[Rfam]
RNA sequence: GAACAGUGACAAUUGAUAUUAAAUAUACCAUAAAAAGCUUAUUUGCCAACCAUUCUGUUAUAUCACCACUCAUAUUCCGGGAUA
Numbered sequence: 001g002a003a004c005a006g007u008g009a010c011a012a013u014u015g016a017u018a019u020u021a022a023a024u025a026u027a028c029c030a031u032a033a034a035a036a037g038c039u040u041a042u043u044u045g046c047c048a049a050c051c052a053u054u055c056u057g058u059u060a061u062a063u064c065a066c067c068a069c070u071c072a073u074a075u076u077c078c079g080g081g082a083u084a
Stems, first nucleotide, its partner, number of pairs: 002083001004081001032044003